[Rfam]
RNA: mir-9229 microRNA precursor family
Organism: Cnephaeus nilssonii
RNA sequence: GAGACACCUUAUGGGGCAAGACUUGCUUCAGUGGGGCUUUGUUGCUCACUGAGUCUGCCCCGAGUGUGUCCCU
Numbered sequence: 001g002a003g004a005c006a007c008c009u010u011a012u013g014g015g016g017c018a019a020g021a022c023u024u025g026c027u028u029c030a031g032u033g034g035g036g037c038u039u040u041g042u043u044g045c046u047c048a049c050u051g052a053g054u055c056u057g058c059c060c061c062g063a064g065u066g067u068g069u070c071c072c073u
Stems, first nucleotide, its partner, number of pairs: 001072001003070005009064002013061006020055003028052008036043001